[Rfam]
RNA: msiK RNA
Organism: Glaciibacter psychrotolerans
RNA sequence: UAUGAAUCCCACUCACAAAGGAUCGUCCGGCACGUACCUGCCGGUGAAGGAGAAAAUA
Number, nucleotide and partner (000 for none) at each position: 001u000002a000003u000004g000005a000006a000007u000008c000009c050010c049011a000012c000013u047014c046015a045016c000017a000018a000019a000020g000021g000022a000023u000024c000025g000026u000027c044028c043029g042030g041031c040032a039033c000034g000035u000036a000037c000038c000039u032040g031041c030042c029043g028044g027045u015046g014047a013048a000049g010050g009051a000052g000053a000054a000055a000056a000057u000058a000